[Rfam]
RNA: c-di-GMP-I riboswitch aptamer
Organism: Saliterribacillus persicus
RNA sequence: UUAAAAUAUUGGCAAACCUUUCGAAAGAAGGGGACGCAAAGCUAAAGGGGCUAAUCAUUAUUGUAAUGAAUGCCAGCCAGUUGCGCUU
Numbered sequence: 001u002u003a004a005a006a007u008a009u010u011g012g013c014a015a016a017c018c019u020u021u022c023g024a025a026a027g028a029a030g031g032g033g034a035c036g037c038a039a040a041g042c043u044a045a046a047g048g049g050g051c052u053a054a055u056c057a058u059u060a061u062u063g064u065a066a067u068g069a070a071u072g073c074c075a076g077c078c079a080g081u082u083g084c085g086c087u088u
Base pairs, nucleotide, nucleotide: 012037013036017032018031019030020029021028022027040082041081042080043079047078048077049074050073051072056068057067058066059065